[Rfam]
Shown here is a 101-nucleotide RNA sequence from Gossypium aridum, a member of the family "Small nucleolar RNA Z103". Gene Ontology terms of the family: nucleolus and RNA processing.
RNA sequence: AUGGAAGUGAUGAUUAUUUCCCCAGAUGAUCGAAGCUGAACAAACUGUGCGAAUUUUUUUUCUCCAAUUAGUUGGAGAUCCAAGCCAGAACUCUGAUCCGU
Numbered sequence: 001a002u003g004g005a006a007g008u009g010a011u012g013a014u015u016a017u018u019u020c021c022c023c024a025g026a027u028g029a030u031c032g033a034a035g036c037u038g039a040a041c042a043a044a045c046u047g048u049g050c051g052a053a054u055u056u057u058u059u060u061u062c063u064c065c066a067a068u069u070a071g072u073u074g075g076a077g078a079u080c081c082a083a084g085c086c087a088g089a090a091c092u093c094u095g096a097u098c099c100g101u
Stems, first nucleotide, its partner, number of pairs: 001101005
Dot-bracket structure: (((((...........................................................................................)))))
On this family, see Chen et al., Nucleic Acids Res 2003: "The high diversity of snoRNAs in plants: identification and comparative study of 120 snoRNA genes from Oryza sativa". The family's consensus secondary structure was predicted with PFOLD.